Shown here is a 91-nucleotide RNA sequence, a member of the family "Small nucleolar RNA R64/Z200 family". Pairs were carried over by alignment from the consensus structure, which was predicted with PFOLD. It is one of the family's seed sequences.
[Rfam]
RNA sequence: AAAAUGCUAUGAGGAAUCAUGAAAACUUUCGCAUGUCAGACUUCAGAGAUGCCAUGGCAUCAAUGAGAAGAUGUUUUCAUUUUCUGAGCUU
Numbered sequence: 001a002a003a004a005u006g007c008u009a010u011g012a013g014g015a016a017u018c019a020u021g022a023a024a025a026c027u028u029u030c031g032c033a034u035g036u037c038a039g040a041c042u043u044c045a046g047a048g049a050u051g052c053c054a055u056g057g058c059a060u061c062a063a064u065g066a067g068a069a070g071a072u073g074u075u076u077u078c079a080u081u082u083u084c085u086g087a088g089c090u091u
Base pairs, nucleotide, nucleotide: 001091002090006089007088048061049060050059051058